[Rfam]
RNA sequence: AAAAAGUGCUAUAGUAACUAAAGUUUAGAAGCCAUAGUGGUUUCCAAAACACAGACAGGAGGAAAAUAUUAUG
Numbered sequence: 001a002a003a004a005a006g007u008g009c010u011a012u013a014g015u016a017a018c019u020a021a022a023g024u025u026u027a028g029a030a031g032c033c034a035u036a037g038u039g040g041u042u043u044c045c046a047a048a049a050c051a052c053a054g055a056c057a058g059g060a061g062g063a064a065a066a067u068a069u070u071a072u073g
Stems, first nucleotide, its partner, number of pairs: 029043005
Dot-bracket structure: ............................(((((.....)))))..............................
RNA: Clostridium-PBP RNA